Rfam assigns this 600-nucleotide part of an RNA from Donacobius atricapilla to the family "Eukaryotic large subunit ribosomal RNA".
RNA sequence: ACUGUUUAAUUAAAACAAAGCAUUGCAAAGGCCCAAGGUGGCCCAGUCCUCUGAAUGUCAAAGUGGAGAAAUUCAAGGAAGUGUGGCUAAACGGCAGGAGUAACUAUGACUCUUGGGGCAGCUUGAGAGUGUCUGGUUACCAACUGGGUGCAGCUGCAAAAGUCACACCUCUCCCUUUAUGGAUACCCAUAAAGGGUAGCUAAGUUGACUUCUGCCCCAGUGUGAGCAAGAGAGUACAUGGUACCACUCCCUGCUUUUGGGACUCACCCUCCAAGUUGCAGUUUCACAACACGGUGUCAAAAAUCUUGACUGGUUGGUUGAGUCUGUCAGAGACACUCUUCCUAGAGCCUUGUCCACGGGCCUAAUAGCUAGACAAAUAUGUUGGCCGCAGGGGAGCAGGUGCUACUGUCAACUCCAAGUGGCUUCGCCAACCACUUGGUAGUAUCCUGGUGACAAAAGCUAGUGCACAAUGCAUGAUUCUCAAGCCAGGGCAGCACAAGCCACCAGGCCCUGACCCAUAGGGUGGCGAUGUUGGGUAAAGCGGGCAGCGCUCAGCGGGAAGGGGGGGCGGUAAUGCUGCCAUAUCUCUCGGGACCUCCC
Dot-bracket structure: ..(((.........)))..((.(((........))).)).(((..((..((.(..(((.....((((....)))).....))))))....)))))((((((.......))))))......................................................................................................................................................................................................................................................................................................................................................................................................................................................................................................